[Rfam]
RNA: HIF-1 alpha IRES
RNA sequence: CGCGUCUGAGGGUACGCGAGGAUCGCCCUCGCCGGUGCUUCGGCCAGUGCGUCGGGCUGGGCCCUGACAAGCAGUCGGAAGAGAGACGCUCUGAGCCGGACCCAGAGCCCUGCGAUUGCCGCCUGCUCCUCCUGCCUCUGGUCUCACGAGGGGUUUCCCGCCUCGCACCCCCACCUCUGGACUUGCUCUCCUUCUCUCUCCGCGUGUGGAGGGAGCCAGUGCUUAGGCCGGAGCGAGCCUGGGGGCCGCGGGCCGUGAAGGCACCGCGGGGACCGAUUCGCCAUG
Numbered sequence: 001c002g003c004g005u006c007u008g009a010g011g012g013u014a015c016g017c018g019a020g021g022a023u024c025g026c027c028c029u030c031g032c033c034g035g036u037g038c039u040u041c042g043g044c045c046a047g048u049g050c051g052u053c054g055g056g057c058u059g060g061g062c063c064c065u066g067a068c069a070a071g072c073a074g075u076c077g078g079a080a081g082a083g084a085g086a087c088g089c090u091c092u093g094a095g096c097c098g099g100a101c102c103c104a105g106a107g108c109c110c111u112g113c114g115a116u117u118g119c120c121g122c123c124u125g126c127u128c129c130u131c132c133u134g135c136c137u138c139u140g141g142u143c144u145c146a147c148g149a150g151g152g153g154u155u156u157c158c159c160g161c162c163u164c165g166c167a168c169c170c171c172c173a174c175c176u177c178u179g180g181a182c183u184u185g186c187u188c189u190c191c192u193u194c195u196c197u198c199u200c201c202g203c204g205u206g207u208g209g210a211g212g213g214a215g216c217c218a219g220u221g222c223u224u225a226g227g228c229c230g231g232a233g234c235g236a237g238c239c240u241g242g243g244g245g246c247c248g249c250g251g252g253c254c255g256u257g258a259a260g261g262c263a264c265c266g267c268g269g270g271g272a273c274c275g276a277u278u279c280g281c282c283a284u285g
Stems, first nucleotide, its partner, number of pairs: 003011001016032006034062001036060001083156003087153001129150003133146001183219003187215001189213002195210003229252001233249003